[Rfam]
RNA sequence: CGGAGUGUGGCUCAGCCCGGUAGAGCACUGCGUUCGGGACGCAGGGGUCGCAGGUUCGAAUCCUGCCACUCCGA
Numbered sequence: 001c002g003g004a005g006u007g008u009g010g011c012u013c014a015g016c017c018c019g020g021u022a023g024a025g026c027a028c029u030g031c032g033u034u035c036g037g038g039a040c041g042c043a044g045g046g047g048u049c050g051c052a053g054g055u056u057c058g059a060a061u062c063c064u065g066c067c068a069c070u071c072c073g074a
Stems, first nucleotide, its partner, number of pairs: 001073007010026004028044005050066005
Overview: tRNA: a 74-nucleotide sequence from Nitrobacter hamburgensis. A search with the family's covariance model found it, with a score of 67 bits. It is annotated as a transfer RNA. Pairs were carried over by alignment from the consensus structure, which is taken from published work. Taxonomically the source falls in Nitrobacter hamburgensis (Bacteria, Pseudomonadati, Pseudomonadota, Alphaproteobacteria).